[Rfam]
RNA: Streptomyces-metK RNA
RNA sequence: GCGAGACGGGUGGUCCUGCGGACGGUGGCGACCGAUAAACUGCACUUGGAACGUGAUCGGGCGCAGCCCCCGGUGUGGUUCCGCCAAAUGAUCAGCCAGCAGCCGCUGCAACCCCAGGGAG
Numbered sequence: 001g002c003g004a005g006a007c008g009g010g011u012g013g014u015c016c017u018g019c020g021g022a023c024g025g026u027g028g029c030g031a032c033c034g035a036u037a038a039a040c041u042g043c044a045c046u047u048g049g050a051a052c053g054u055g056a057u058c059g060g061g062c063g064c065a066g067c068c069c070c071c072g073g074u075g076u077g078g079u080u081c082c083g084c085c086a087a088a089u090g091a092u093c094a095g096c097c098a099g100c101a102g103c104c105g106c107u108g109c110a111a112c113c114c115c116a117g118g119g120a121g
Stems, first nucleotide, its partner, number of pairs: 048082005056074001058072004097108004